About this RNA:
This 200-nucleotide sequence from Actinomadura kijaniata belongs to the Rfam family "c-di-AMP riboswitch aptamer (ydaO/yuaA leader)". Gene Ontology terms of the family: regulation of gene expression and cyclic-di-AMP binding. Rfam's curators write: This family represents a conserved RNA structure found upstream of the ydaO and yuaA genes in Bacillus subtilis and related genes in other bacteria. The match comes from Rfam's covariance-model search (74 bits). NCBI's taxonomy places the organism under Bacteria, Bacillati, Streptosporangiales, Thermomonosporaceae, Actinomadura.
Nucleotides: 200
Base pairs, nucleotide, nucleotide: 011184012183013182014181018033019032020031021030022029034179035178036177037176038175039174044092093164094163095162101139102138103137104136142158143157144156145155
Number, partner (000 for none) and nucleotide at each position: 001000g002000c003000g004000u005000c006000g007000g008000c009000a010000a011184c012183g013182c014181c015000g016000a017000a018033u019032c020031c021030g022029c023000c024000u025000g026000u027000g028000c029022g030021c031020g032019g033018a034179a035178c036177c037176g038175g039174g040000g041000a042000c043000c044092c045000a046000c047000u048000u049000g050000g051000g052000u053000c054000a055000c056000g057000g058000u059000c060000c061000c062000g063000g064000a065000c066000a067000u068000c069000g070000c071000u072000u073000c074000c075000g076000g077000a078000a079000c080000c081000g082000c083000c084000u085000c086000g087000a088000c089000c090000c091000c092044g093164g094163g095162g096000u097000g098000a099000a100000u101139c102138g103137g104136c105000g106000c107000g108000g109000c110000c111000u112000c113000c114000c115000g116000a117000u118000c119000a120000c121000g122000c123000a124000u125000c126000g127000g128000c129000c130000c131000g132000c133000c134000u135000c136104g137103c138102c139101g140000u141000a142158g143157g144156g145155c146000g147000a148000c149000u150000u151000c152000c153000a154000a155145g156144c157143c158142c159000g160000a161000a162095c163094c164093c165000g166000u167000c168000a169000g170000c171000u172000a173000a174039c175038c176037c177036g178035g179034u180000a181014g182013g183012c184011g185000u186000c187000u188000g189000g190000a191000a192000g193000a194000a195000g196000g197000a198000g199000c200000a